[Rfam]
RNA: Bacillaceae-1 RNA
Organism: Pontibacillus yanchengensis
RNA sequence: AUAAGAGGAAGUUCGAUUAAAAUUGCUGCGUCACGCAGCAACAUCGAACCAACCCACGUCCUGUGGA
Numbered sequence: 001a002u003a004a005g006a007g008g009a010a011g012u013u014c015g016a017u018u019a020a021a022a023u024u025g026c027u028g029c030g031u032c033a034c035g036c037a038g039c040a041a042c043a044u045c046g047a048a049c050c051a052a053c054c055c056a057c058g059u060c061c062u063g064u065g066g067a
Stems, first nucleotide, its partner, number of pairs: 011049007025039005054066004